The record is a 54-nucleotide sequence from Muraenolepis orangiensis, which matches "UnaL2 LINE 3' element" in Rfam. Rfam classes the family as a cis-regulatory element.
RNA sequence: GAAACACACUACUGUAAGACGCUUUGGAUAAAAGCGUCUGCUAAAUGUAAAUGU
Number, nucleotide and partner (000 for none) at each position: 001g000002a000003a000004a000005c000006a000007c000008a000009c000010u000011a000012c000013u043014g041015u040016a039017a000018g000019a000020c036021g035022c034023u033024u032025u031026g000027g000028a000029u000030a000031a025032a024033a023034g022035c021036g020037u000038c000039u016040g015041c014042u000043a013044a000045a000046u000047g000048u000049a000050a000051a000052u000053g000054u000
Background:
The family's consensus secondary structure is taken from published work. Its family is annotated with transposition, RNA-mediated in the Gene Ontology. The source organism's lineage runs through Eukaryota, Deuterostomia, Actinopteri, Clupeocephala and Muraenolepis. The eel long interspersed element (LINE) UnaL2 and its partner short interspersed element (SINE) share a conserved 3' tail containing a stem-loop that is critical for their retrotransposition.